Rfam assigns this 100-nucleotide sequence from Solibacillus sp. R5-41 to the family "Purine riboswitch aptamer". The family's consensus secondary structure is taken from published work.
RNA sequence: AAGGAAAAACAUUAAACCCCACAUAUAUGCUAGAUAAUAUGGCUCUAGCGUUUCUACCCGAAACCUUAAAUUUCGGACUAUGAGGGAAAGCAACUUUUGG
Numbered sequence: 001a002a003g004g005a006a007a008a009a010c011a012u013u014a015a016a017c018c019c020c021a022c023a024u025a026u027a028u029g030c031u032a033g034a035u036a037a038u039a040u041g042g043c044u045c046u047a048g049c050g051u052u053u054c055u056a057c058c059c060g061a062a063a064c065c066u067u068a069a070a071u072u073u074c075g076g077a078c079u080a081u082g083a084g085g086g087a088a089a090g091c092a093a094c095u096u097u098u099g100g
Stems, first nucleotide, its partner, number of pairs: 018086003022082004029049006058076006